[Rfam]
RNA sequence: CGAUCGGGACGACCCGAUCCAUGAGGUGGGCAUUGGCCGGGACGACCCGG
Numbered sequence: 001c002g003a004u005c006g007g008g009a010c011g012a013c014c015c016g017a018u019c020c021a022u023g024a025g026g027u028g029g030g031c032a033u034u035g036g037c038c039g040g041g042a043c044g045a046c047c048c049g050g
Stems, first nucleotide, its partner, number of pairs: 002019007037050005
RNA: Guanidine-II riboswitch aptamer (mini-ykkC)
Organism: Devosia sp. Root413D1